[Rfam]
RNA sequence: UCAAUCAGUUGCUCAGUAGCUAGUGUAGGAUCUGUUUCAUAAUCUCUACAGCUACAUCUGGUUACUGGGUCUCUGAUGACAUUA
Numbered sequence: 001u002c003a004a005u006c007a008g009u010u011g012c013u014c015a016g017u018a019g020c021u022a023g024u025g026u027a028g029g030a031u032c033u034g035u036u037u038c039a040u041a042a043u044c045u046c047u048a049c050a051g052c053u054a055c056a057u058c059u060g061g062u063u064a065c066u067g068g069g070u071c072u073c074u075g076a077u078g079a080c081a082u083u084a
Base pairs, nucleotide, nucleotide: 013068014067015066016065017064018063020061021060022059023057024056025055026054027053028052032051033050034049035048
RNA: mir-221 microRNA precursor family